[Rfam]
The family of this 117-nucleotide sequence from Nonomuraea cypriaca is "Actinobacteria sRNA Ms_IGR-7". The match comes from Rfam's covariance-model search (55 bits). Rfam 15.1 lists 463 matches to the family in 194 species. NCBI's taxonomy places the organism under Bacteria, Bacillati, Streptosporangiales, Streptosporangiaceae, Nonomuraea.
RNA sequence: GAGAGGUGUCCUCUCGAUUUGGUUGACGGAAGCCUGAAGAACUCCCAUCAUCCCAGGUCGGAGGGCACCUCCUCGCGUUUCAGGGCAUUCGGAUCAGAAUCGACGCGGUGGAUCCAA
Numbered sequence: 001g002a003g004a005g006g007u008g009u010c011c012u013c014u015c016g017a018u019u020u021g022g023u024u025g026a027c028g029g030a031a032g033c034c035u036g037a038a039g040a041a042c043u044c045c046c047a048u049c050a051u052c053c054c055a056g057g058u059c060g061g062a063g064g065g066c067a068c069c070u071c072c073u074c075g076c077g078u079u080u081c082a083g084g085g086c087a088u089u090c091g092g093a094u095c096a097g098a099a100u101c102g103a104c105g106c107g108g109u110g111g112a113u114c115c116a117a
Stems, first nucleotide, its partner, number of pairs: 002073001003071011015060003019056004024050003029045001031043002097115001099113003103109001